This 113-nucleotide RNA from Bailinhaonella thermotolerans belongs to the Rfam family "TPP riboswitch aptamer (THI element)". The family's consensus secondary structure is taken from published work. Rfam's curators write: Vitamin B(1) in its active form thiamin pyrophosphate (TPP) is an essential coenzyme that is synthesised by coupling of pyrimidine and thiazole moieties in bacteria. The previously detected thiamin-regulatory element, thi box was extended, resulting in a new, highly conserved RNA secondary structure, the THI element, which is widely distributed in eubacteria and also occurs in some archaea. The source organism's lineage runs through Bacteria, Bacillati, Actinomycetota, Streptosporangiales and Bailinhaonella.
RNA sequence: CACAACCACCGCGGGAGUCCGGGGCAACCGGGCUGAGAGGGCAGCUACCGCCGCUGCCGACCGCAGAACCUGUCCGGGUAAUGCCGGCGUAGGGAGCGUGCGAUGACCGCUGU
Numbered sequence: 001c002a003c004a005a006c007c008a009c010c011g012c013g014g015g016a017g018u019c020c021g022g023g024g025c026a027a028c029c030g031g032g033c034u035g036a037g038a039g040g041g042c043a044g045c046u047a048c049c050g051c052c053g054c055u056g057c058c059g060a061c062c063g064c065a066g067a068a069c070c071u072g073u074c075c076g077g078g079u080a081a082u083g084c085c086g087g088c089g090u091a092g093g094g095a096g097c098g099u100g101c102g103a104u105g106a107c108c109g110c111u112g113u
Stems, first nucleotide, its partner, number of pairs: 007100003011064004017033005040058005069093004074087004